The family of this 80-nucleotide sequence from Flavobacterium psychrophilum is "Flavo-1 RNA". NCBI's taxonomy places the organism under Bacteria, Pseudomonadati, Flavobacteriia, Flavobacterium, Flavobacterium psychrophilum. It is annotated as a small RNA.
[Rfam]
RNA sequence: UUUUAGCCCCGAUUGCAACGGAAAUCCUUUUUGUUUUUUCUUUAAAAACAAAAAGAUUGAAGUGUAAAGCGGGAAUAGCU
Numbered sequence: 001u002u003u004u005a006g007c008c009c010c011g012a013u014u015g016c017a018a019c020g021g022a023a024a025u026c027c028u029u030u031u032u033g034u035u036u037u038u039u040c041u042u043u044a045a046a047a048a049c050a051a052a053a054a055g056a057u058u059g060a061a062g063u064g065u066a067a068a069g070c071g072g073g074a075a076u077a078g079c080u
Stems, first nucleotide, its partner, number of pairs: 009072003013068002018063002023058004029053010